Shown here is a 315-nucleotide part of an RNA from Plasmodium yoelii, a member of the family "Eukaryotic large subunit ribosomal RNA". Taxonomically the source falls in Plasmodium yoelii (Eukaryota, Plasmodiidae, Plasmodium, Vinckeia).
RNA sequence: GAGUCUAACAAAUGUGCGAGCGUAUAUAUGUUACGAACUAUAACAAAGAAUGAAAAUUCUUCUAUUUACGCGUAAUUAAUGUAAUUUUGGUAGAUUUUUAGGGGUCUCCCCUAAUUUGCAUACCAUGCCGGUUGGCGAUUAUGCUUAAUUGAGUAUGAGUAUAUUUGUUAGGACCCGAGAGGCUUUGAACUAAGCGUGAUGAGAUUGAAGUCAGACGAAAGUCUGAUGGAAGAUCGAAUUGAUACUGACGUGCAAAUCGUUCAUUUCAAUCACGUUUAGGGGCGAAAGACUAAUCGAAAGGCCUAUUAGCUGGUU
Number, nucleotide and partner (000 for none) at each position: 001g000002a000003g000004u000005c171006u170007a169008a168009c167010a166011a165012a164013u163014g162015u161016g160017c159018g000019a000020g071021c070022g069023u000024a000025u000026a065027u064028a063029u000030g061031u000032u000033a000034c000035g000036a000037a000038c000039u000040a000041u000042a000043a000044c000045a000046a000047a000048g000049a000050a000051u000052g000053a000054a000055a000056a000057u000058u000059c000060u000061u030062c000063u028064a027065u026066u000067u000068a000069c022070g021071c020072g000073u000074a000075a082076u081077u000078a000079a000080u000081g076082u075083a000084a000085u000086u000087u000088u125089g124090g123091u122092a121093g000094a000095u000096u000097u000098u000099u000100a000101g000102g000103g000104g000105u000106c000107u000108c000109c000110c000111c000112u000113a000114a000115u000116u000117u000118g000119c000120a000121u092122a091123c090124c089125a088126u000127g154128c153129c151130g150131g149132u148133u147134g146135g000136c000137g000138a142139u000140u000141a000142u138143g000144c000145u000146u134147a133148a132149u131150u130151g129152a000153g128154u127155a000156u000157g000158a000159g017160u016161a015162u014163a013164u012165u011166u010167g009168u008169u007170a006171g005172g000173a000174c313175c312176c000177g310178a000179g000180a000181g303182g302183c301184u300185u299186u298187g000188a000189a000190c279191u278192a277193a276194g275195c274196g273197u272198g271199a270200u269201g267202a000203g235204a234205u233206u232207g000208a000209a000210g227211u226212c225213a224214g223215a222216c221217g000218a000219a000220a000221g216222u215223c214224u213225g212226a211227u210228g000229g000230a000231a000232g206233a205234u204235c203236g000237a000238a000239u000240u263241g262242a261243u000244a260245c259246u000247g258248a257249c000250g000251u000252g000253c000254a000255a000256a000257u248258c247259g245260u244261u242262c241263a240264u000265u000266u000267c201268a000269a200270u199271c198272a197273c196274g195275u194276u193277u192278a191279g190280g000281g291282g290283c000284g000285a000286a000287a000288g000289a000290c282291u281292a000293a000294u000295c000296g000297a000298a186299a185300g184301g183302c182303c181304u000305a000306u000307u000308a000309g000310c177311u000312g175313g174314u000315u000